Rfam assigns this 33-nucleotide sequence to the family "L31-Firmicutes ribosomal protein leader".
By type it is a cis-regulatory leader.
Clan: Ribosomal Protein L31 Leader clan.
RNA sequence: CUAUGACUUGAAAAAAAGUCAUGGCGGAAGGAG
Numbered sequence: 001c002u003a004u005g006a007c008u009u010g011a012a013a014a015a016a017a018g019u020c021a022u023g024g025c026g027g028a029a030g031g032a033g
Stems, first nucleotide, its partner, number of pairs: 001024008